[Rfam]
RNA sequence: ACCGAGACUAGAGUCACAUCUGAACACUGCCUGUUGUCCUGGUGUGCUAGAGUACUCGGAAAGUAACCACUAAUCUUUAUUCACUGGCUGUGGCCAUUGUUGACUCAGUCAGUUACCGGGUUAGUGACAGGA
Numbered sequence: 001a002c003c004g005a006g007a008c009u010a011g012a013g014u015c016a017c018a019u020c021u022g023a024a025c026a027c028u029g030c031c032u033g034u035u036g037u038c039c040u041g042g043u044g045u046g047c048u049a050g051a052g053u054a055c056u057c058g059g060a061a062a063g064u065a066a067c068c069a070c071u072a073a074u075c076u077u078u079a080u081u082c083a084c085u086g087g088c089u090g091u092g093g094c095c096a097u098u099g100u101u102g103a104c105u106c107a108g109u110c111a112g113u114u115a116c117c118g119g120g121u122u123a124g125u126g127a128c129a130g131g132a
Base pairs, nucleotide, nucleotide: 002059003058004057005056006055007053008052009051012048013047015046016045017044018043019042020041024037025036026035070124071123072122073121074120075119076118083113084112085111086110087109089107090106092104094102

The record is a 132-nucleotide RNA sequence from Aythya fuligula, which matches "Small nucleolar RNA SNORA3/SNORA45 family" in Rfam. Clan: SNORA3 clan. The members of this family belong to the H/ACA class of snoRNAs which are thought to guide the sites of modification of uridines to pseudouridines. This family includes mouse snoMBI-28 and human homologues ACA3 (SNORA3) and ACA3-2 (SNORA45). Both ACA3 and ACA3-2 share the same host gene. The base pairs follow the family's consensus structure, which was predicted with RNAalifold. Rfam classes the family as an H/ACA-box small nucleolar RNA. Rfam links the family to the GO terms RNA processing and nucleolus. The literature on the family includes a 2001 paper in EMBO J by Huttenhofer et al., "RNomics: an experimental approach that identifies 201 candidates for novel, small, non-messenger RNAs in mouse".